[Rfam]
RNA: U12 minor spliceosomal RNA
Organism: Sarcophilus harrisii
RNA sequence: AUGCAUUAAAUUUAUGAGUAAGGAAAAAAUGAUUUGGGUAACUCCUGAAUCUUCACUACACAUGUGAAAAGAAUUUUUGAGUUGGGUACAGAUUGUCCCUAAGGUGACCUGUCUACUUUAGCAGUAUGCUUAGGUGUACUCCCAG
Numbered sequence: 001a002u003g004c005a006u007u008a009a010a011u012u013u014a015u016g017a018g019u020a021a022g023g024a025a026a027a028a029a030u031g032a033u034u035u036g037g038g039u040a041a042c043u044c045c046u047g048a049a050u051c052u053u054c055a056c057u058a059c060a061c062a063u064g065u066g067a068a069a070a071g072a073a074u075u076u077u078u079g080a081g082u083u084g085g086g087u088a089c090a091g092a093u094u095g096u097c098c099c100u101a102a103g104g105u106g107a108c109c110u111g112u113c114u115a116c117u118u119u120a121g122c123a124g125u126a127u128g129c130u131u132a133g134g135u136g137u138a139c140u141c142c143c144a145g
Stems, first nucleotide, its partner, number of pairs: 004023001006021003031051008052068005082145005090140002099134002102131005109124004